Notes: Shown here is a 121-nucleotide RNA from Kalanchoe fedtschenkoi, a member of the family "MIR408 microRNA precursor family". The source organism's lineage runs through Eukaryota, Viridiplantae, Embryophyta, Spermatophyta and Kalanchoe. Rfam 15.1 lists 299 matches to the family in 186 species. Rfam links the family to the GO terms miRNA-mediated post-transcriptional gene silencing and RISC complex.

RNA sequence: GUGGAGAGACUUGGCAAAGACAGGGACAGGCAGAGCAUGGUUGGAGCCAUCAACACACAAAAUGCUGUUGUUGGCCUAACCAUGCACUGCCUCUUCCCUGGCUGUGUCUCUUCUUCUACCU
Numbered sequence: 001g002u003g004g005a006g007a008g009a010c011u012u013g014g015c016a017a018a019g020a021c022a023g024g025g026a027c028a029g030g031c032a033g034a035g036c037a038u039g040g041u042u043g044g045a046g047c048c049a050u051c052a053a054c055a056c057a058c059a060a061a062a063u064g065c066u067g068u069u070g071u072u073g074g075c076c077u078a079a080c081c082a083u084g085c086a087c088u089g090c091c092u093c094u095u096c097c098c099u100g101g102c103u104g105u106g107u108c109u110c111u112u113c114u115u116c117u118a119c120c121u
Base pairs, nucleotide, nucleotide: 018103019102021100022099023098024097025096026095028092029091030090031089032088033087035085036084037083038082039081040080044076